Record summary: Shown here is a 92-nucleotide RNA sequence from Brachypodium distachyon, a member of the family "Small nucleolar RNA Z152/R70/R12/". Its family is annotated with RNA processing and nucleolus in the Gene Ontology. The family's consensus secondary structure was predicted with PFOLD. The family's RNA type in Rfam is C/D-box small nucleolar RNA. A reference for the family is Barneche et al. (2001), "Identification of 66 box C/D snoRNAs in Arabidopsis thaliana: extensive gene duplications generated multiple isoforms predicting new ribosomal RNA 2'-O-methylation sites", J Mol Biol.
RNA sequence: GAUGCGAUGAUGAUUCAUAGGUUUCUGGCAGUGGUGGCACAUGUCACCGUGAGCCUUCAAACCAAAAUCGACUUCUCUUUCCACUGAGCAUU
Dot-bracket structure: (((((..................................................................................)))))